[Rfam]
RNA sequence: AAUUCUAUUUCUAGGAACAAAGAGAAGCAGAUCUAUUUUAUACUAGAUAAGUAUCAGUACGCAAUGGGA
Numbered sequence: 001a002a003u004u005c006u007a008u009u010u011c012u013a014g015g016a017a018c019a020a021a022g023a024g025a026a027g028c029a030g031a032u033c034u035a036u037u038u039u040a041u042a043c044u045a046g047a048u049a050a051g052u053a054u055c056a057g058u059a060c061g062c063a064a065u066g067g068g069a
Stems, first nucleotide, its partner, number of pairs: 003022002006019001008017003043068002051060003
RNA: Plastid-clpP 5UTR RNA
Organism: Populus alba